RNA: U1 spliceosomal RNA
RNA sequence: UUGCCAACUUGGUACAGGAGAUACCAUGGUCAUGAAGGUGGUAUUCUCAGGGGAAGGCUUAUCUAUUGCAUUCCAGACGUGCUGACCCUUUGAAUUUCUCCAAAUCUGAGAAAUUCCACUGCAUAAUUUCUGAUGGUGAGAGAAUGCAUUCAUGCUUUGCCUUG
Numbered sequence: 001u002u003g004c005c006a007a008c009u010u011g012g013u014a015c016a017g018g019a020g021a022u023a024c025c026a027u028g029g030u031c032a033u034g035a036a037g038g039u040g041g042u043a044u045u046c047u048c049a050g051g052g053g054a055a056g057g058c059u060u061a062u063c064u065a066u067u068g069c070a071u072u073c074c075a076g077a078c079g080u081g082c083u084g085a086c087c088c089u090u091u092g093a094a095u096u097u098c099u100c101c102a103a104a105u106c107u108g109a110g111a112a113a114u115u116c117c118a119c120u121g122c123a124u125a126a127u128u129u130c131u132g133a134u135g136g137u138g139a140g141a142g143a144a145u146g147c148a149u150u151c152a153u154g155c156u157u158u159g160c161c162u163u164g
Base pairs, nucleotide, nucleotide: 012122013121014120017047018046019045020044023042024041025040026039027038049090050089051088052087056083057082058081060079062077063076064075092117094115095113096112097111099109100108138163139162140161143158146155147154148153